Overview: The family of this 74-nucleotide RNA from Drosophila busckii is "mir-33 microRNA precursor family". Rfam 15.1 lists 1,467 matches to the family in 815 species. A search with the family's covariance model found it, with a score of 66 bits. On this family, see Li et al., BMC Genomics 2009: "Direct sequencing and expression analysis of a large number of miRNAs in Aedes aegypti and a multi-species survey of novel mosquito miRNAs". The base pairs follow the family's consensus structure, which was predicted with PFOLD. Lineage of the source: Eukaryota > Protostomia > Pancrustacea > Drosophilinae > Dorsilopha. Gene Ontology terms of the family: RISC complex and gene silencing by miRNA.
RNA sequence: CGAAGGUGCAUUGUAGUCGCAUUGUCUGUACCUAAAUCUUUGUCCUAGGCAAUACAACUGCAGUGCAAGCUUUG
Dot-bracket structure: ((((.(((((((((((..(.(((((((...................))))))).)..))))))))))..)))))
Numbered sequence: 001c002g003a004a005g006g007u008g009c010a011u012u013g014u015a016g017u018c019g020c021a022u023u024g025u026c027u028g029u030a031c032c033u034a035a036a037u038c039u040u041u042g043u044c045c046u047a048g049g050c051a052a053u054a055c056a057a058c059u060g061c062a063g064u065g066c067a068a069g070c071u072u073u074g
Stems, first nucleotide, its partner, number of pairs: 001074004006070001007067010019055001021053007